[Rfam]
RNA: Mammalian CPEB3 ribozyme
Organism: Branchiostoma lanceolatum
RNA sequence: UGAUUAAUUCAAAAGCCAUAGAAGGAGCGUUCUCGUCGCAGCCCCUGUCAGGCAACUACGUUACCUGCGAAUCCUUCU
Number, nucleotide and partner (000 for none) at each position: 001u000002g000003a000004u000005u000006a000007a000008u000009u000010c000011a000012a000013a000014a000015g042016c041017c000018a000019u000020a078021g077022a076023a075024g074025g073026a072027g039028c038029g037030u000031u000032c000033u000034c000035g000036u000037c029038g028039c027040a000041g016042c015043c000044c000045c000046u000047g000048u000049c067050a066051g065052g064053c000054a062055a061056c000057u000058a000059c000060g000061u055062u054063a000064c052065c051066u050067g049068c000069g000070a000071a000072u026073c025074c024075u023076u022077c021078u020